[Rfam]
RNA: mir-263 microRNA precursor family
Organism: Apolygus lucorum
RNA sequence: GUCUCCUGGGAAUGGCACUGAAAGAAUUCACGGGGUUGCACUCGACUUAACCCGUGGUUCGACAGUGCCAUCCUCAGUGGAG
Numbered sequence: 001g002u003c004u005c006c007u008g009g010g011a012a013u014g015g016c017a018c019u020g021a022a023a024g025a026a027u028u029c030a031c032g033g034g035g036u037u038g039c040a041c042u043c044g045a046c047u048u049a050a051c052c053c054g055u056g057g058u059u060c061g062a063c064a065g066u067g068c069c070a071u072c073c074u075c076a077g078u079g080g081a082g
Base pairs, nucleotide, nucleotide: 002081003080004079006077007076008075009074012071013070014069015068016067017066019064020063024059025058028057029056030055031054032053033052